[Rfam]
RNA: Group II catalytic intron D1-D4-2
RNA sequence: GAGAGUAGGCCUCUCGAAAUCGGCAUUCAGGUGCAAGUUUCAAACUGCCUGUUGGUGCUGCAGUCAAAAGCUGUGGUAUUGAGCGUGACAGGAAAAGGUUGUUUAAUGUAAAAUAAAAAUGG
Numbered sequence: 001g002a003g004a005g006u007a008g009g010c011c012u013c014u015c016g017a018a019a020u021c022g023g024c025a026u027u028c029a030g031g032u033g034c035a036a037g038u039u040u041c042a043a044a045c046u047g048c049c050u051g052u053u054g055g056u057g058c059u060g061c062a063g064u065c066a067a068a069a070g071c072u073g074u075g076g077u078a079u080u081g082a083g084c085g086u087g088a089c090a091g092g093a094a095a096a097g098g099u100u101g102u103u104u105a106a107u108g109u110a111a112a113a114u115a116a117a118a119a120u121g122g
Stems, first nucleotide, its partner, number of pairs: 001015005016041005023034004045122002048092005054080002057077003061073004099116004